Background:
The family of this 63-nucleotide sequence is "nhaA-I RNA". The base pairs follow the family's consensus structure, which is taken from published work. The sequence is in the family's curated seed alignment. Rfam's curators write: Acidobacteria, Alphaproteobacteria, Betaproteobacteria and Gammaproteobacteria, Verrucomicrobia, cand. division NC10.

[Rfam]
RNA sequence: CGGUGCCAGCUGCGAGGUGCAGUGGGGCAGGUUAAUUCGAUAGCGCAGGUCGGGCCGCCAGCG
Numbered sequence: 001c002g003g004u005g006c007c008a009g010c011u012g013c014g015a016g017g018u019g020c021a022g023u024g025g026g027g028c029a030g031g032u033u034a035a036u037u038c039g040a041u042a043g044c045g046c047a048g049g050u051c052g053g054g055c056c057g058c059c060a061g062c063g
Stems, first nucleotide, its partner, number of pairs: 005028003009023003044063003048059003